[Rfam]
RNA sequence: CGGCAGCUCUUUUCACUCGGAUCGUCCGGCACGUUCCUGCCGGUGAAAGGAAGCGGUG
Numbered sequence: 001c002g003g004c005a006g007c008u009c010u011u012u013u014c015a016c017u018c019g020g021a022u023c024g025u026c027c028g029g030c031a032c033g034u035u036c037c038u039g040c041c042g043g044u045g046a047a048a049g050g051a052a053g054c055g056g057u058g
Base pairs, nucleotide, nucleotide: 009050010049011048012047013046014045015044026043027042028041029040030039031038
msiK RNA: a 58-nucleotide RNA from Asanoa hainanensis. NCBI's taxonomy places the organism under Bacteria, Bacillati, Actinomycetota, Micromonosporales, Asanoa. Rfam classes the family as a cis-regulatory element.